The family of this 72-nucleotide RNA sequence from Rodentolepis nana is "HDV ribozyme from F. prausnitzii". The family's consensus secondary structure is taken from published work. For this family Rfam cites "Widespread occurrence of self-cleaving ribozymes" (Webb et al., Science, 2009).
RNA sequence: GGGGCGCGCAAUAGACUUACCUCCACGUGGUGCACCCUGGACAACGUAUUCGCAUACGGCAAAAAAGUCAUA
Number, nucleotide and partner (000 for none) at each position: 001g038002g037003g036004g035005c000006g033007c032008g000009c000010a000011a000012u000013a000014g000015a000016c000017u000018u000019a031020c030021c029022u000023c000024c000025a000026c000027g000028u000029g021030g020031u019032g007033c006034a000035c004036c003037c002038u001039g000040g000041a000042c000043a000044a000045c058046g057047u056048a055049u054050u000051c000052g000053c000054a049055u048056a047057c046058g045059g000060c000061a000062a000063a000064a000065a000066a000067g000068u000069c000070a000071u000072a000